[Rfam]
RNA sequence: GCCGGGUUGGGUGGCGCCAACUUGUUACGGGUACGCUUCUGUCCGGGUAGUAAGGUGUGAGGGUUGUGGCAUGCGUUGUGGUGUCACUAUCCCCAGGAUGUGGAUGGCGCGUCCAUCUCAAACCAGGAGUCGACAUUGGGGCAUUGUCGUAAGGCAGUGCACCGAGGUCACUAAGGAAGGGUGUACCGCCCCAGGCUGGUUAACAGAGCAGGGAAAAGCCCUCGCUCUUGGUAGUGGGAGGAUCUCGUGCCAGAAUCCUGAUGUGGCAGUACUUCGCUGUAAGCUGUAAUUCGAUCACCUUGCGA
Numbered sequence: 001g002c003c004g005g006g007u008u009g010g011g012u013g014g015c016g017c018c019a020a021c022u023u024g025u026u027a028c029g030g031g032u033a034c035g036c037u038u039c040u041g042u043c044c045g046g047g048u049a050g051u052a053a054g055g056u057g058u059g060a061g062g063g064u065u066g067u068g069g070c071a072u073g074c075g076u077u078g079u080g081g082u083g084u085c086a087c088u089a090u091c092c093c094c095a096g097g098a099u100g101u102g103g104a105u106g107g108c109g110c111g112u113c114c115a116u117c118u119c120a121a122a123c124c125a126g127g128a129g130u131c132g133a134c135a136u137u138g139g140g141g142c143a144u145u146g147u148c149g150u151a152a153g154g155c156a157g158u159g160c161a162c163c164g165a166g167g168u169c170a171c172u173a174a175g176g177a178a179g180g181g182u183g184u185a186c187c188g189c190c191c192c193a194g195g196c197u198g199g200u201u202a203a204c205a206g207a208g209c210a211g212g213g214a215a216a217a218g219c220c221c222u223c224g225c226u227c228u229u230g231g232u233a234g235u236g237g238g239a240g241g242a243u244c245u246c247g248u249g250c251c252a253g254a255a256u257c258c259u260g261a262u263g264u265g266g267c268a269g270u271a272c273u274u275c276g277c278u279g280u281a282a283g284c285u286g287u288a289a290u291u292c293g294a295u296c297a298c299c300u301u302g303c304g305a
Stems, first nucleotide, its partner, number of pairs: 001048003004023007028045005050303008061292010072281004078272003082268004088263004095259005101253001105252007113241002116239005122232009132169003136165004141160008171175001178222005189213003196206003

Shown here is a 305-nucleotide RNA sequence from Phytophthora megakarya, a member of the family "Metazoan signal recognition particle RNA".
It scores 149 bits against the family's covariance model.
Clan: SRP clan.
The signal recognition particle (SRP) is a universally conserved ribonucleoprotein.